[Rfam]
RNA sequence: CCCGUUGCAUCCUCGCGACUAAUGAGAAAUCUUGUAAAAAUACACCAAAUUUCUCAUUAGCCGCGCGAACCCGUGCAAAGCAGGAUCAUACACAGCAACAAUACAUGAGUUUACAUAUAAUUGCUGCCUUCUGACUGAAAAAGGGGCCCCAAAAGGCCCCUUUUC
Dot-bracket structure: ((.((.(((....((((.(((((((............................)))))))...))))......)))...)).)).....(...........................)........................((((((......)))))).....

Description
Shown here is a 165-nucleotide sequence from Tenebrionibacter intestinalis, a member of the family "SraG RNA". Its family is annotated with mRNA binding and sRNA-mediated gene silencing in the Gene Ontology. The literature on the family includes a 2001 paper in Curr Biol by Argaman et al., "Novel small RNA-encoding genes in the intergenic regions of Escherichia coli". NCBI's taxonomy places the organism under Bacteria, Gammaproteobacteria, Enterobacterales, Enterobacteriaceae, Tenebrionibacter. The family's consensus secondary structure was predicted with PFOLD. This RNA was discovered in E. coli during a large scale screen. Evidence was found for specific cleavage of this RNA.